A member of the RNA family "skipping-rope RNA" from Methylosinus trichosporium, 113 nucleotides long. Rfam classes the family as a small RNA. It is one of the family's seed sequences.

[Rfam]
RNA sequence: CAGUUUCGAGGUGAGAACGGCCUCCUCACGCGCCGGGCGUUCGAUCGUUCGCUCGGCAAAGUAGCUAGGGCGACUUAGCGAAGAGAUCCGGAAUUGGGCGUCCGGCGAACCGG
Numbered sequence: 001c002a003g004u005u006u007c008g009a010g011g012u013g014a015g016a017a018c019g020g021c022c023u024c025c026u027c028a029c030g031c032g033c034c035g036g037g038c039g040u041u042c043g044a045u046c047g048u049u050c051g052c053u054c055g056g057c058a059a060a061g062u063a064g065c066u067a068g069g070g071c072g073a074c075u076u077a078g079c080g081a082a083g084a085g086a087u088c089c090g091g092a093a094u095u096g097g098g099c100g101u102c103c104g105g106c107g108a109a110c111c112g113g
Stems, first nucleotide, its partner, number of pairs: 001113001003111001005109004011029005020099004031083001032057008088105005